[Rfam]
RNA sequence: AGAGGCCCUCCGUGGCCAGGGUGGAAUGCUUGCCUCAUUGCAGCGGCGACAAAGCAAACAUUCUGCCAGGCUACUCACACUGCCCAC
Number, nucleotide and partner (000 for none) at each position: 001a000002g000003a000004g084005g083006c082007c000008c000009u000010c000011c000012g074013u073014g072015g071016c070017c069018a000019g000020g067021g066022u065023g064024g063025a062026a061027u060028g059029c000030u057031u056032g055033c054034c000035u000036c000037a000038u049039u048040g047041c046042a000043g000044c000045g000046g041047c040048g039049a038050c000051a000052a000053a000054g033055c032056a031057a030058a000059c028060a027061u026062u025063c024064u023065g022066c021067c020068a000069g017070g016071c015072u014073a013074c012075u000076c000077a000078c000079a000080c000081u000082g006083c005084c004085c000086a000087c000
Rfam assigns this 87-nucleotide RNA sequence from Myotis lucifugus to the family "mir-9195 microRNA precursor family". Lineage of the source: Eukaryota > Euteleostomi > Tetrapoda > Vespertilionidae > Myotis. Rfam 15.1 lists 438 matches to the family in 7 species. The match comes from Rfam's covariance-model search (91 bits). The base pairs follow the family's consensus structure, which was predicted with RNAalifold.